[Rfam]
RNA: Eukaryotic small subunit ribosomal RNA, nucleotides 616 to 1151
Organism: Gnathophausia zoea
RNA sequence: UGGUUAAAAAGCUCGUAGUUGGAAUCUUGCCUGAGGAGUUAGUGGAAGCCGAAUGGUUUUCUUCUAUAGAGUUCAGGCUUUUGCCUUGAGAACAAAUAGUGCUCUUGACUGGGUGUUUUUUGAAUUGUCAAGCACUAUUACCUUGACUAAAUUCGAGUGCUUAAAGCAGGCGUUUGCCUGAAGAGAUGUUCAUGGGAUGAUGGAACAUGAUCUCUGUUCUGUUUGUUGGUUUGAGAUAAAAGAGAUAAUGAUAAAUGGAAGCAAGCGGGGGCAUUUGUACUGCUACGCUAGAGGUGAAAUUCUUGGACCGUAGCAUGACAAACUAAAGCGAAAGCAUCUGCCAAGGAUGUUUCCGUUAAUCAAGAACGAAAGUUAGAGGAUCGAAGGCGAUCAGAUACCGCCCUAGUUCUAACUGUAAACUAUGCUGACCAGCUAUCUGCCGGCGUUAUUCCCAUGACUCGGCAGGCCGCUUCCGGGAAACCAGAGUUUCUGAGUUCCAGGGGAAGUAUGGUUGCAAAUCUGAAACUUAAAGGAAU
Dot-bracket structure: (((.....(.(.((...(((.............................................................................................................................................................................................................................................(.((((..(...((((..((...(((((((...(((......)))......)))))))...)).......((....))...))))..)..)).)).)...)))...)).)....((((((....(...((((.........))))...).))))))..........((((((.(((..((((((((.(((........)))))))))))..)))...((....))...)))....))))))).(((......((.(....).))....)))........